[Rfam]
Shown here is an 80-nucleotide RNA sequence from Bombycilla garrulus, a member of the family "Small nucleolar RNA SNORD111". Rfam links the family to the GO terms nucleolus and RNA processing. For this family Rfam cites "Purified box C/D snoRNPs are able to reproduce site-specific 2'-O-methylation of target RNA in vitro" (Galardi et al., Mol Cell Biol, 2002).

RNA sequence: UAGCCUGAAGUGAUGAGUGUGGUUCAUGUCUCUUCUCUGAGAUUUAUACUGCAGACACUCCAAAGACUCUGAUCAGGCAG
Number, nucleotide and partner (000 for none) at each position: 001u080002a000003g078004c077005c076006u000007g000008a000009a000010g000011u000012g000013a000014u000015g000016a000017g000018u000019g000020u000021g000022g000023u000024u000025c000026a000027u000028g000029u000030c000031u000032c000033u000034u000035c000036u000037c000038u000039g000040a000041g000042a000043u000044u000045u000046a000047u000048a000049c000050u000051g000052c000053a000054g000055a000056c000057a000058c000059u000060c000061c000062a000063a000064a000065g000066a000067c000068u000069c000070u000071g000072a000073u000074c000075a000076g005077g004078c003079a000080g001